[Rfam]
Nucleotides: 137
Base pairs, nucleotide, nucleotide: 003041004040005039007038008037010034011033014030015029016028067131068130069129072126074124079119080118081117082116085113086112087111090105091104092103093102094101
Number, partner (000 for none) and nucleotide at each position: 001000c002000u003041u004040u005039g006000u007038a008037c009000g010034a011033a012000c013000u014030u015029u016028a017000u018000a019000a020000a021000a022000u023000u024000g025000a026000g027000u028016u029015a030014a031000u032000u033011u034010u035000a036000a037008g038007u039005c040004a041003a042000u043000u044000a045000u046000u047000u048000u049000g050000u051000a052000a053000c054000g055000u056000a057000u058000g059000u060000a061000g062000u063000a064000a065000a066000u067131c068130u069129u070000c071000u072126g073000c074124u075000c076000u077000u078000c079119a080118g081117a082116u083000u084000a085113g086112u087111u088000g089000a090105g091104g092103g093102g094101g095000c096000u097000g098000c099000u100000u101094c102093c103092c104091u105090c106000c107000u108000u109000g110000a111087a112086g113085c114000u115000u116082g117081u118080c119079u120000a121000g122000u123000a124074g125000u126072c127000u128000u129069a130068a131067g132000a133000a134000c135000a136000u137000a
The family of this 137-nucleotide RNA sequence from Hordeum vulgare is "Small nucleolar RNA snoR77". On this family, see Marker et al., Curr Biol 2002: "Experimental RNomics: identification of 140 candidates for small non-messenger RNAs in the plant Arabidopsis thaliana". The family has 5 seed sequences and 649 matches in Rfam 15.1. Rfam links the family to the GO terms nucleolus and RNA processing.